[Rfam]
RNA sequence: CGGCUCUUCCUAUCAUACCGAAGCAGAAUUCGGUAAGCGUUGGAUUGUUCACCCACUAAACAUUGUACGCCCGAGGGCGGUACAGAUGGUGGCCAGAGGGGUCUCCUUCACCCCUAGUUCACUGCAGUUAACGGUAGUAGGUCUGCAGGAGCAAGAUGACCUGGUACGGGAGAAACCUAAGGGGCAACCUAUGGCAAUCCCGUGGCGAGCUGGUCUAGUGAGAACUUGACCGAGCCGUCGUAACGCGCGCAAAGGCAUCGGUAGAGCAAGGUAGCUCUGCUUAAGGGACGUGCUACUCCCACCCGAAAGGGUGCCCCGGUCGAAGUGCCUACUUACACAGACACCGGUGGGGGCUAGUAAGGUUCUCUCGGGGGCCGUGGAACGACACGGUGACAUGCCCGAGCGGCCUUUACUGGGGUUAAGCCUAAAUAACUUAACUCUUCAGCCUGGUAUCAAGGAAUAGGGAACGUGAGCUGGGUUUAGACCGUCGUGAGACAGGUUAGUU
Number, nucleotide and partner (000 for none) at each position: 001c477002g475003g474004c473005u472006c469007u466008u465009c464010c463011u462012a000013u000014c039015a000016u000017a034018c033019c032020g031021a030022a029023g000024c000025a000026g000027a000028a000029u022030u021031c020032g019033g018034u017035a000036a000037g000038c000039g014040u000041u456042g000043g454044a453045u452046u000047g000048u000049u000050c000051a000052c000053c000054c000055a000056c000057u000058a000059a000060a000061c000062a000063u000064u000065g000066u000067a000068c000069g000070c000071c000072c000073g000074a000075g000076g000077g000078c000079g000080g000081u000082a000083c000084a000085g000086a000087u000088g000089g000090u000091g000092g000093c000094c000095a000096g000097a000098g000099g000100g000101g000102u000103c000104u000105c000106c000107u000108u000109c000110a000111c000112c000113c000114c000115u000116a000117g000118u000119u000120c000121a000122c000123u000124g000125c000126a000127g000128u000129u000130a000131a000132c000133g000134g000135u000136a000137g000138u000139a000140g000141g000142u000143c000144u000145g000146c000147a000148g000149g000150a000151g000152c000153a000154a000155g000156a000157u000158g000159a000160c000161c000162u000163g000164g000165u000166a000167c000168g000169g000170g000171a000172g000173a000174a000175a000176c000177c000178u000179a000180a000181g000182g000183g000184g000185c000186a000187a000188c000189c000190u000191a000192u000193g000194g000195c000196a000197a000198u000199c000200c000201c000202g000203u000204g000205g000206c000207g000208a000209g000210c000211u000212g000213g000214u000215c000216u000217a000218g000219u000220g000221a000222g000223a000224a000225c000226u000227u000228g000229a000230c000231c000232g000233a000234g000235c000236c000237g000238u000239c000240g000241u000242a000243a000244c000245g000246c000247g000248c000249g000250c000251a000252a000253a000254g000255g000256c000257a000258u000259c000260g000261g000262u000263a000264g000265a000266g000267c000268a000269a000270g000271g000272u000273a000274g000275c000276u000277c000278u000279g000280c000281u000282u000283a000284a000285g000286g000287g000288a000289c000290g000291u000292g000293c000294u000295a000296c000297u000298c000299c000300c000301a000302c000303c000304c000305g000306a000307a000308a000309g000310g000311g000312u000313g000314c000315c000316c000317c000318g000319g000320u000321c000322g000323a000324a000325g000326u000327g000328c000329c000330u000331a000332c000333u000334u000335a000336c000337a000338c000339a000340g000341a000342c000343a000344c000345c000346g000347g000348u000349g000350g000351g000352g000353g000354c000355u000356a000357g000358u000359a000360a000361g000362g000363u000364u000365c000366u000367c000368u000369c000370g000371g000372g000373g000374g000375c000376c000377g000378u000379g000380g000381a000382a000383c000384g000385a000386c000387a000388c000389g000390g000391u000392g000393a000394c000395a000396u000397g000398c000399c000400c000401g000402a000403g000404c000405g000406g000407c000408c000409u000410u000411u000412a000413c000414u000415g000416g000417g000418g000419u000420u000421a000422a000423g000424c000425c000426u000427a000428a000429a000430u000431a000432a000433c000434u000435u000436a000437a000438c000439u000440c000441u000442u000443c000444a000445g000446c000447c000448u000449g000450g000451u000452a045453u044454c043455a000456a041457g000458g000459a000460a000461u000462a011463g010464g009465g008466a007467a000468c000469g006470u000471g000472a005473g004474c003475u002476g000477g001478g000479u000480u000481u000482a000483g501484a500485c499486c498487g496488u495489c494490g000491u000492g000493a000494g489495a488496c487497a000498g486499g485500u484501u483502a000503g000504u000505u000

Eukaryotic large subunit ribosomal RNA: a 505-nucleotide part of an RNA from Cladophialophora carrionii. The base pairs follow the family's consensus structure, which is taken from published work. NCBI's taxonomy places the organism under Eukaryota, Opisthokonta, Dikarya, Pezizomycotina, Cladophialophora.